[Rfam]
RNA sequence: GGUAAUAUUGGUUCUGUAACGGGGUGGAUCCGACGCCUCUCGAAGGCUACUAUAGGCUCUCCUACCCAACUCCUACUCAAUACGUCCGCGAAGUACAGAACGGUAACUUGUCGCCUAAAUAUCCAAGCUUGGGUACACGGGGAAACCCACCCCCUUGGGCUACUCGCUAGCAGUUCAUCCUCGAGCGUC
Numbered sequence: 001g002g003u004a005a006u007a008u009u010g011g012u013u014c015u016g017u018a019a020c021g022g023g024g025u026g027g028a029u030c031c032g033a034c035g036c037c038u039c040u041c042g043a044a045g046g047c048u049a050c051u052a053u054a055g056g057c058u059c060u061c062c063u064a065c066c067c068a069a070c071u072c073c074u075a076c077u078c079a080a081u082a083c084g085u086c087c088g089c090g091a092a093g094u095a096c097a098g099a100a101c102g103g104u105a106a107c108u109u110g111u112c113g114c115c116u117a118a119a120u121a122u123c124c125a126a127g128c129u130u131g132g133g134u135a136c137a138c139g140g141g142g143a144a145a146c147c148c149a150c151c152c153c154c155u156u157g158g159g160c161u162a163c164u165c166g167c168u169a170g171c172a173g174u175u176c177a178u179c180c181u182c183g184a185g186c187g188u189c
Base pairs, nucleotide, nucleotide: 011101012100013099014098015097016096017095022067023066024065025064026062027061028060030056031055073187076185077184078183080181082094083093086103087102106175108173109172110171111170113168115166121164130149131148132147133146134145152159153158
This 189-nucleotide RNA from Anopheles sinensis belongs to the Rfam family "drz-agam-2-2 ribozyme". Its family is annotated with catalytic activity in the Gene Ontology. For this family Rfam cites "Widespread occurrence of self-cleaving ribozymes" (Webb et al., Science, 2009).